[Rfam]
RNA sequence: UGUGUGGUGUGUGUGUGUGUGUGUGUGUUGUGUGUGUGUGUGUGUGUGUGUGUAUGUAUAUACUGUAUAUACACAUACACAUACACACACAUACGCACACACACACACACACACACACAUAUAUAUAUGUGUGUGUGUGUGUGUGUGCGUACAUAUAUACAUACAUACCAUAUAUAUACAUAUAUAUAU
Numbered sequence: 001u002g003u004g005u006g007g008u009g010u011g012u013g014u015g016u017g018u019g020u021g022u023g024u025g026u027g028u029u030g031u032g033u034g035u036g037u038g039u040g041u042g043u044g045u046g047u048g049u050g051u052g053u054a055u056g057u058a059u060a061u062a063c064u065g066u067a068u069a070u071a072c073a074c075a076u077a078c079a080c081a082u083a084c085a086c087a088c089a090c091a092u093a094c095g096c097a098c099a100c101a102c103a104c105a106c107a108c109a110c111a112c113a114c115a116c117a118c119a120u121a122u123a124u125a126u127a128u129g130u131g132u133g134u135g136u137g138u139g140u141g142u143g144u145g146u147g148c149g150u151a152c153a154u155a156u157a158u159a160c161a162u163a164c165a166u167a168c169c170a171u172a173u174a175u176a177u178a179c180a181u182a183u184a185u186a187u188a189u
Stems, first nucleotide, its partner, number of pairs: 011112004022103003026099003029095006036088005043081018128182005133168005140155006
RNA: Small nucleolar RNA SNORA23
Organism: Penaeus vannamei